The record is a 155-nucleotide sequence from Brevibacillus fluminis, which matches "c-di-AMP riboswitch aptamer (ydaO/yuaA leader)" in Rfam. Rfam's curators write: This family represents a conserved RNA structure found upstream of the ydaO and yuaA genes in Bacillus subtilis and related genes in other bacteria.

RNA sequence: CUUCAUACCUAGCCAAAACUUCCCACACCGGAAGUGCGGGGGACGCUUUAACUCGCUGGAAUCUAAACAGCGAUUGGGGUGAAUCGCGUAAGCGUAGGGUUGACUCCUCAACCCGAAUCCGACAACUAACCUCGCAGGCAGUCGAAAGGAGCGAA
Numbered sequence: 001c002u003u004c005a006u007a008c009c010u011a012g013c014c015a016a017a018a019c020u021u022c023c024c025a026c027a028c029c030g031g032a033a034g035u036g037c038g039g040g041g042g043a044c045g046c047u048u049u050a051a052c053u054c055g056c057u058g059g060a061a062u063c064u065a066a067a068c069a070g071c072g073a074u075u076g077g078g079g080u081g082a083a084u085c086g087c088g089u090a091a092g093c094g095u096a097g098g099g100u101u102g103a104c105u106c107c108u109c110a111a112c113c114c115g116a117a118u119c120c121g122a123c124a125a126c127u128a129a130c131c132u133c134g135c136a137g138g139c140a141g142u143c144g145a146a147a148g149g150a151g152c153g154a155a
Stems, first nucleotide, its partner, number of pairs: 012139003018035006036135006046076001077120003085094003097114004